RNA sequence: UUUUUUGAGAAUCAUAUGAAUCCAGUAGUGUAGUGAUUCAUAUGGUUCUCGCCGGCU
Numbered sequence: 001u002u003u004u005u006u007g008a009g010a011a012u013c014a015u016a017u018g019a020a021u022c023c024a025g026u027a028g029u030g031u032a033g034u035g036a037u038u039c040a041u042a043u044g045g046u047u048c049u050c051g052c053c054g055g056c057u
Stems, first nucleotide, its partner, number of pairs: 006051017
About this RNA:
Rfam assigns this 57-nucleotide sequence to the family "Plastid-ccsA-ndhD-2 3UTR RNA". Plastid ccsA-ndhD-2 is a non-coding RNA (ncRNA) recognised in plastids. It was found in the three prime untranslated region (3UTR) of ccsA and ndhD genes, its 3UTR location suggests a role in transcript maturation. The family's consensus secondary structure was predicted with LocARNA.